[Rfam]
This 77-nucleotide sequence from Pantoea vagans belongs to the Rfam family "tpke11". NCBI's taxonomy places the organism under Bacteria, Gammaproteobacteria, Enterobacterales, Erwiniaceae, Pantoea. Rfam links the family to the GO term response to temperature stimulus. It is annotated as a small RNA. From the family's description: In Yersinia located in ICR upstream dnaJ (chaperone)gene. Has temperature responsive RNA structure. The base pairs follow the family's consensus structure, which was predicted with WAR. A reference for the family is Rivas et al. (2001), "Computational identification of noncoding RNAs in E. coli by comparative genomics", Curr Biol.
RNA sequence: GACAGUCGUUGAAACCAGCACGGGCGUAGGAGAUCUCUCCACGCCCGUGCGAUCAUGUUAAGGGCAGAACAAAUAUG
Number, nucleotide and partner (000 for none) at each position: 001g000002a000003c000004a000005g015006u000007c000008g000009u000010u000011g000012a000013a000014a000015c005016c000017a000018g050019c049020a048021c047022g046023g045024g044025c043026g042027u000028a000029g039030g038031a000032g000033a000034u000035c000036u000037c000038u030039c029040c000041a000042c026043g025044c024045c023046c022047g021048u020049g019050c018051g000052a000053u000054c000055a000056u000057g000058u000059u000060a000061a000062g000063g000064g000065c000066a000067g000068a000069a000070c000071a000072a000073a000074u000075a000076u000077g000